[Rfam]
RNA sequence: GUUGUUUUUUGAAAGGCAAAUGACCAUUCUAAAAGUUGGUCAAUCAUAUCGGGAAGCAUAUAUAAAGAACGUAUUGCCAGUUUUAAACAACAUAAUGUUCUUCUGUUGUAUUGUGUUACCUGUCACCUGGUAAAUUU
Numbered sequence: 001g002u003u004g005u006u007u008u009u010u011g012a013a014a015g016g017c018a019a020a021u022g023a024c025c026a027u028u029c030u031a032a033a034a035g036u037u038g039g040u041c042a043a044u045c046a047u048a049u050c051g052g053g054a055a056g057c058a059u060a061u062a063u064a065a066a067g068a069a070c071g072u073a074u075u076g077c078c079a080g081u082u083u084u085a086a087a088c089a090a091c092a093u094a095a096u097g098u099u100c101u102u103c104u105g106u107u108g109u110a111u112u113g114u115g116u117u118a119c120c121u122g123u124c125a126c127c128u129g130g131u132a133a134a135u136u137u
Base pairs, nucleotide, nucleotide: 003058004057005056006055007054008053016045020044021042022041023040024039025038076131077130078129079128080127082125089117090116091115093113094112095111096110097109
Shown here is a 137-nucleotide RNA sequence from Camellia sinensis, a member of the family "small nucleolar RNA snoR137". The organism belongs to Camellia, within Eukaryota. The match comes from Rfam's covariance-model search (59 bits). For this family Rfam cites "Mining small RNA sequencing data: a new approach to identify small nucleolar RNAs in Arabidopsis" (Chen and Wu, Nucleic Acids Res, 2009). Pairs were carried over by alignment from the consensus structure, which was predicted with RNAalifold.